[Rfam]
RNA: Small nucleolar RNA R12
Organism: Miscanthus lutarioriparius
RNA sequence: AUUGAGACGGAGAAGAAAACCAGACGGAUUCCCACUGAUUUUUCCAAAAUGAUGUUAUUAGCCAGCUGCUUCCGAGCAAU
Number, nucleotide and partner (000 for none) at each position: 001a080002u079003u078004g077005a000006g000007a000008c000009g000010g000011a000012g000013a000014a000015g000016a000017a000018a000019a000020c000021c000022a000023g000024a000025c000026g000027g000028a000029u000030u000031c000032c000033c000034a000035c000036u000037g000038a000039u000040u000041u000042u000043u000044c000045c000046a000047a000048a000049a000050u000051g000052a000053u000054g000055u000056u000057a000058u000059u000060a000061g000062c000063c000064a000065g000066c000067u000068g000069c000070u000071u000072c000073c000074g000075a000076g000077c004078a003079a002080u001